Shown here is a 133-nucleotide sequence from Schinkia azotoformans, a member of the family "Ribosomal protein L20 leader". Pairs were carried over by alignment from the consensus structure, which was predicted with CMfinder. It is annotated as a cis-regulatory leader.
[Rfam]
RNA sequence: UGGAAAAAGUAGAGGCACCCGCUUCUCACCUGAUUGACGCACUUAAGACGUUGUUGACAGGUUAUACGCAAUCUUAAAUAAUGAAGAUCGUGAAACGUGGGUGUAGUAUGUAUGCCGACGUUUUUUUUUCGUA
Numbered sequence: 001u002g003g004a005a006a007a008a009g010u011a012g013a014g015g016c017a018c019c020c021g022c023u024u025c026u027c028a029c030c031u032g033a034u035u036g037a038c039g040c041a042c043u044u045a046a047g048a049c050g051u052u053g054u055u056g057a058c059a060g061g062u063u064a065u066a067c068g069c070a071a072u073c074u075u076a077a078a079u080a081a082u083g084a085a086g087a088u089c090g091u092g093a094a095a096c097g098u099g100g101g102u103g104u105a106g107u108a109u110g111u112a113u114g115c116c117g118a119c120g121u122u123u124u125u126u127u128u129u130c131g132u133a
Base pairs, nucleotide, nucleotide: 011026012025013024014023015022016021028062029061030060036055037054038053039051040050096120097119098118100116101115102114103113104112105111
Its family is annotated with regulation of gene expression in the Gene Ontology.